[Rfam]
RNA sequence: AGUGUAGAGGUAGAUAAGAUGCUGUGUUCUUCCUCAGGUAAUUUAUCUACCUCUCACAAC
Numbered sequence: 001a002g003u004g005u006a007g008a009g010g011u012a013g014a015u016a017a018g019a020u021g022c023u024g025u026g027u028u029c030u031u032c033c034u035c036a037g038g039u040a041a042u043u044u045a046u047c048u049a050c051c052u053c054u055c056a057c058a059a060c
Stems, first nucleotide, its partner, number of pairs: 002057003006054012021039003

A member of the RNA family "mir-7398 microRNA precursor family" from Sarcophilus harrisii, 60 nucleotides long. Its family is annotated with RISC complex and miRNA-mediated post-transcriptional gene silencing in the Gene Ontology. Lineage of the source: Eukaryota > Deuterostomia > Mammalia > Metatheria > Sarcophilus. The family's consensus secondary structure was predicted with RNAalifold.